[Rfam]
RNA sequence: UAAUAAUAAAUGAAUACAACCUGUAUAACCUCAGAAUAUGGCUUGAGGGUCUCUACCAGGAACCAUAAAAUCCUGAUUACAGAAAAUGAAUGACUCGUU
Numbered sequence: 001u002a003a004u005a006a007u008a009a010a011u012g013a014a015u016a017c018a019a020c021c022u023g024u025a026u027a028a029c030c031u032c033a034g035a036a037u038a039u040g041g042c043u044u045g046a047g048g049g050u051c052u053c054u055a056c057c058a059g060g061a062a063c064c065a066u067a068a069a070a071u072c073c074u075g076a077u078u079a080c081a082g083a084a085a086a087u088g089a090a091u092g093a094c095u096c097g098u099u
Stems, first nucleotide, its partner, number of pairs: 021082005029048005034042001057075005
This 99-nucleotide RNA sequence from Gracilibacillus thailandensis belongs to the Rfam family "Purine riboswitch aptamer". Rfam describes the family as follows. Riboswitches are metabolite binding domains within certain messenger RNAs that serve as precision sensors for their corresponding targets. NCBI's taxonomy places the organism under Bacteria, Bacillota, Bacilli, Bacillaceae, Gracilibacillus. The family's consensus secondary structure is taken from published work.